[Rfam]
RNA sequence: CCAGGAAAAUGACCUAUGAAUUGACAGACUGCUUUCUAACUUUUGCCUGUCAUUUCUAUAGGCCAAUAUUCUGC
Numbered sequence: 001c002c003a004g005g006a007a008a009a010u011g012a013c014c015u016a017u018g019a020a021u022u023g024a025c026a027g028a029c030u031g032c033u034u035u036c037u038a039a040c041u042u043u044u045g046c047c048u049g050u051c052a053u054u055u056c057u058a059u060a061g062g063c064c065a066a067u068a069u070u071c072u073g074c
Stems, first nucleotide, its partner, number of pairs: 002073005008067001010065002013062004018056003022052006029045001031043001
Shown here is a 74-nucleotide RNA sequence from Piaya cayana, a member of the family "mir-192/215 microRNA precursor family". Rfam describes the family as follows. This family represents the human microRNA (miRNA) precursors mir-192 and mir-215. Animal miRNAs are transcribed as ~70nt precursors and subsequently processed by the Dicer enzyme to give a ~22nt product. In this case the mature sequence comes from the 5' arm of the precursor. The extents of the hairpin precursors are not generally known and are estimated based on hairpin prediction. Lineage of the source: Eukaryota > Eumetazoa > Deuterostomia > Neognathae > Piaya. The base pairs follow the family's consensus structure, which was predicted with PFOLD. Its family is annotated with miRNA-mediated post-transcriptional gene silencing and RISC complex in the Gene Ontology.